[Rfam]
RNA: RNase MRP
RNA sequence: ACGUCACUGGACGAAGUGAUUGGGCUUUGGACUUGUCAAAGUUCAGACUCAGGAAAGUCCCCGGGUCACUUUUCCGUAGAGAUACGGAACCUCGGCAAUGAGAGAAUCAUUACGUCGGAGAGACAUAUUAUCGGCUGAGACACGUGUGUGGAGCCUUCUCUUCGACGAAUGAUAAUAUGGCCGUUCGUUUCAAAACAGUUAUUCACUUGGGUCUUCCUUCGGACCAAACUGAACGGGGCUUAUGUUUCAGUGACA
Numbered sequence: 001a002c003g004u005c006a007c008u009g010g011a012c013g014a015a016g017u018g019a020u021u022g023g024g025c026u027u028u029g030g031a032c033u034u035g036u037c038a039a040a041g042u043u044c045a046g047a048c049u050c051a052g053g054a055a056a057g058u059c060c061c062c063g064g065g066u067c068a069c070u071u072u073u074c075c076g077u078a079g080a081g082a083u084a085c086g087g088a089a090c091c092u093c094g095g096c097a098a099u100g101a102g103a104g105a106a107u108c109a110u111u112a113c114g115u116c117g118g119a120g121a122g123a124c125a126u127a128u129u130a131u132c133g134g135c136u137g138a139g140a141c142a143c144g145u146g147u148g149u150g151g152a153g154c155c156u157u158c159u160c161u162u163c164g165a166c167g168a169a170u171g172a173u174a175a176u177a178u179g180g181c182c183g184u185u186c187g188u189u190u191c192a193a194a195a196c197a198g199u200u201a202u203u204c205a206c207u208u209g210g211g212u213c214u215u216c217c218u219u220c221g222g223a224c225c226a227a228a229c230u231g232a233a234c235g236g237g238g239c240u241u242a243u244g245u246u247u248c249a250g251u252g253a254c255a
Base pairs, nucleotide, nucleotide: 003254004253005252006251007250008249009248010247011246014208015207016206017205018204019203021051022050023049024048026046027045029044030043031042032041033040034039055241056240057239059238060237061236062235075086076085077084078083091102092101093100094099106173107172108171113167114166115165116164117163121161122160123159133155134154135153142149143148210225211224212223213222214221